The family of this 99-nucleotide sequence from Cucurbita maxima is "Small nucleolar RNA Z107/R87". A search with the family's covariance model found it, with a score of 55 bits. Gene Ontology terms of the family: nucleolus and RNA processing. For this family Rfam cites "Identification of 66 box C/D snoRNAs in Arabidopsis thaliana: extensive gene duplications generated multiple isoforms predicting new ribosomal RNA 2'-O-methylation sites" (Barneche et al., J Mol Biol, 2001).
RNA sequence: GGUGGCUUUGAUGAUUUCCUAAAAGAUCAAGCUCAACAGACCGGAAUGCAGGUUUCUUUUUGAAACUUGCGUGUCGAUUACUUUCGAAACUGAGCCAUC
Dot-bracket structure: ((((((.......................................................................................))))))